Shown here is a 59-nucleotide RNA sequence from Hevea brasiliensis, a member of the family "Plastid-ndhJ 3UTR RNA".
Rfam classes the family as a cis-regulatory element.
The source organism's lineage runs through Eukaryota, Euphyllophyta, Gunneridae, fabids and Hevea.
It scores 46 bits against the family's covariance model.
The base pairs follow the family's consensus structure, which was predicted with LocARNA.
[Rfam]
RNA sequence: UCAUGAACUUUGUUCCGCGCACAUCCCUUACUUAGAUGAGCUAUAAAGUCACAUAACAU
Numbered sequence: 001u002c003a004u005g006a007a008c009u010u011u012g013u014u015c016c017g018c019g020c021a022c023a024u025c026c027c028u029u030a031c032u033u034a035g036a037u038g039a040g041c042u043a044u045a046a047a048g049u050c051a052c053a054u055a056a057c058a059u
Stems, first nucleotide, its partner, number of pairs: 019041002022038004
Dot-bracket structure: ..................((.((((.........)))).))..................